This 391-nucleotide RNA from Auraticoccus monumenti belongs to the Rfam family "Bacterial RNase P class A".
NCBI's taxonomy places the organism under Bacteria, Actinomycetota, Propionibacteriales, Propionibacteriaceae, Auraticoccus.
Ribonuclease P (RNase P) is a ubiquitous endoribonuclease, found in archaea, bacteria and eukarya as well as chloroplasts and mitochondria.
Rfam classes the family as a ribozyme.
[Rfam]
RNA sequence: CGAGCCGACCGGGUGACCGCGGCACCGACGGGCCCAGGCCUGCCGGUGUCGAGGAAAGUCCGGACUCCGAAGAGCAAGGUGGUGGGUAACACCCACCCGGGGCGACCCGCGGGACAGUGCCACAGAGAACAGACCGCCCCUCCGCGAGGAGGGGUGAGGGUGAAACGGUGGUGUAAGAGACCACCAGCACCCCAGGUGACUGGGGUGGCUCGGUAAACCCCACCUGGAGCAAGGCCAAGAAGACCGUGCGUGCACGGUCGCGGGAGCGUCCGAGGGCUGCUCGCCCGAGCUCCCGGGUAGGCCGCACCAGGCCGCUGGUGACAGCGGUCGCAGAUGGAUGGUCACCGGCCCUCCGGGGUCACAGAAUCCGGCUUACAGGUCGGCUCGUCCA
Numbered sequence: 001c002g003a004g005c006c007g008a009c010c011g012g013g014u015g016a017c018c019g020c021g022g023c024a025c026c027g028a029c030g031g032g033c034c035c036a037g038g039c040c041u042g043c044c045g046g047u048g049u050c051g052a053g054g055a056a057a058g059u060c061c062g063g064a065c066u067c068c069g070a071a072g073a074g075c076a077a078g079g080u081g082g083u084g085g086g087u088a089a090c091a092c093c094c095a096c097c098c099g100g101g102g103c104g105a106c107c108c109g110c111g112g113g114a115c116a117g118u119g120c121c122a123c124a125g126a127g128a129a130c131a132g133a134c135c136g137c138c139c140c141u142c143c144g145c146g147a148g149g150a151g152g153g154g155u156g157a158g159g160g161u162g163a164a165a166c167g168g169u170g171g172u173g174u175a176a177g178a179g180a181c182c183a184c185c186a187g188c189a190c191c192c193c194a195g196g197u198g199a200c201u202g203g204g205g206u207g208g209c210u211c212g213g214u215a216a217a218c219c220c221c222a223c224c225u226g227g228a229g230c231a232a233g234g235c236c237a238a239g240a241a242g243a244c245c246g247u248g249c250g251u252g253c254a255c256g257g258u259c260g261c262g263g264g265a266g267c268g269u270c271c272g273a274g275g276g277c278u279g280c281u282c283g284c285c286c287g288a289g290c291u292c293c294c295g296g297g298u299a300g301g302c303c304g305c306a307c308c309a310g311g312c313c314g315c316u317g318g319u320g321a322c323a324g325c326g327g328u329c330g331c332a333g334a335u336g337g338a339u340g341g342u343c344a345c346c347g348g349c350c351c352u353c354c355g356g357g358g359u360c361a362c363a364g365a366a367u368c369c370g371g372c373u374u375a376c377a378g379g380u381c382g383g384c385u386c387g388u389c390c391a
Stems, first nucleotide, its partner, number of pairs: 001387010011376001012346007020051008056374003060371005065229004072282004077225005082096005097111001098109004112220002117218002119214003134159002136155008167185006187209001188207008233303004262294006274286004310329008